Shown here is an 82-nucleotide RNA sequence from Caenorhabditis briggsae, a member of the family "mir-235 microRNA precursor family". Rfam's curators put it in the seed alignment. The base pairs follow the family's consensus structure, which was predicted with RNAalifold. Rfam links the family to the GO terms miRNA-mediated post-transcriptional gene silencing and RISC complex. Taxonomically the source falls in Caenorhabditis (Eukaryota, Metazoa, Chromadorea, Rhabditida).
[Rfam]
RNA sequence: UCCGAUCCGGCCAUGGCCAAUUGCAUAUAUUGCUUUUACUUUUUCAAAAUGCGAAUAUUGCACUUUCCCUGGCCAGAUCUGA
Numbered sequence: 001u002c003c004g005a006u007c008c009g010g011c012c013a014u015g016g017c018c019a020a021u022u023g024c025a026u027a028u029a030u031u032g033c034u035u036u037u038a039c040u041u042u043u044u045c046a047a048a049a050u051g052c053g054a055a056u057a058u059u060g061c062a063c064u065u066u067c068c069c070u071g072g073c074c075a076g077a078u079c080u081g082a
Stems, first nucleotide, its partner, number of pairs: 004079004009074004015069002019065002022062004027058005032052002